Shown here is a 133-nucleotide RNA from Pterocles gutturalis, a member of the family "Small nucleolar RNA SNORA55".
The base pairs follow the family's consensus structure, which was predicted with PFOLD.
By type it is an H/ACA-box small nucleolar RNA.
[Rfam]
RNA sequence: GCAUCUCAAUCUUUCCCACUCCUGGUGAUAAAGUCCUGGAGUGGGGAUACAGGAUGCAACAGGAAAGCAGAGGAAAUCCAGAUGAGCUCCCUUUCACCACAGUGGGACUUGUCUCUACACCUUUGCAACAUUU
Numbered sequence: 001g002c003a004u005c006u007c008a009a010u011c012u013u014u015c016c017c018a019c020u021c022c023u024g025g026u027g028a029u030a031a032a033g034u035c036c037u038g039g040a041g042u043g044g045g046g047a048u049a050c051a052g053g054a055u056g057c058a059a060c061a062g063g064a065a066a067g068c069a070g071a072g073g074a075a076a077u078c079c080a081g082a083u084g085a086g087c088u089c090c091c092u093u094u095c096a097c098c099a100c101a102g103u104g105g106g107a108c109u110u111g112u113c114u115c116u117a118c119a120c121c122u123u124u125g126c127a128a129c130a131u132u133u
Stems, first nucleotide, its partner, number of pairs: 001057005013047007021039002067126006080114007094105003
A search with the family's covariance model found it, with a score of 104 bits. About the family: ACA55 is a member of the H/ACA class of snoRNA that guide the sites of modification of uridines to pseudouridines. Taxonomically the source falls in Pterocles (Eukaryota, Metazoa, Craniata, Dinosauria).